[Rfam]
RNA sequence: GAAAGACGCGCAUUUAUUAUCAUCAUCCCUAUUAUCAGAGAUGUUUCUUUCGCCACCCGGUAACAAUCGGGUGGCAUUUU
Numbered sequence: 001g002a003a004a005g006a007c008g009c010g011c012a013u014u015u016a017u018u019a020u021c022a023u024c025a026u027c028c029c030u031a032u033u034a035u036c037a038g039a040g041a042u043g044u045u046u047c048u049u050u051c052g053c054c055a056c057c058c059g060g061u062a063a064c065a066a067u068c069g070g071g072u073g074g075c076a077u078u079u080u
Stems, first nucleotide, its partner, number of pairs: 024043004029038002052075009
RNA: MicA sRNA